[Rfam]
RNA: MIR159 microRNA precursor family
Organism: Phoenix dactylifera
RNA sequence: GGGCUGUUGAGAGAGCUCCCUUCAAUCCAACCCUCGAGGGGUAGCAAGGUGUAUAUAUACUGCUGCUGGUUCGUGAAUACCUUUGGGUGCACCUCGAGGGUUGGGCAUGACCCAGGAGACGUACAUCCUUGCCUGCCUUCUUCUAUCUCCUGCUUGGAUUGAAGGGAGCUUCUCUCUCUCUCUUUU
Numbered sequence: 001g002g003g004c005u006g007u008u009g010a011g012a013g014a015g016c017u018c019c020c021u022u023c024a025a026u027c028c029a030a031c032c033c034u035c036g037a038g039g040g041g042u043a044g045c046a047a048g049g050u051g052u053a054u055a056u057a058u059a060c061u062g063c064u065g066c067u068g069g070u071u072c073g074u075g076a077a078u079a080c081c082u083u084u085g086g087g088u089g090c091a092c093c094u095c096g097a098g099g100g101u102u103g104g105g106c107a108u109g110a111c112c113c114a115g116g117a118g119a120c121g122u123a124c125a126u127c128c129u130u131g132c133c134u135g136c137c138u139u140c141u142u143c144u145a146u147c148u149c150c151u152g153c154u155u156g157g158a159u160u161g162a163a164g165g166g167a168g169c170u171u172c173u174c175u176c177u178c179u180c181u182c183u184u185u186u
Stems, first nucleotide, its partner, number of pairs: 013172001014170007023161007036148001063118002066115003072109004